[Rfam]
RNA sequence: GAGUUAGCGAUGAUUAUAUAAAUAAUUUUUCAUUUUGACUUAUUUAAUUUAGACAUGACAAACCUCAUAUUACAACUAUAAAAUCUGAGCUCUAC
Numbered sequence: 001g002a003g004u005u006a007g008c009g010a011u012g013a014u015u016a017u018a019u020a021a022a023u024a025a026u027u028u029u030u031c032a033u034u035u036u037g038a039c040u041u042a043u044u045u046a047a048u049u050u051a052g053a054c055a056u057g058a059c060a061a062a063c064c065u066c067a068u069a070u071u072a073c074a075a076c077u078a079u080a081a082a083a084u085c086u087g088a089g090c091u092c093u094a095c
Base pairs, nucleotide, nucleotide: 003095004094006091007090
RNA: Small nucleolar RNA snoR8a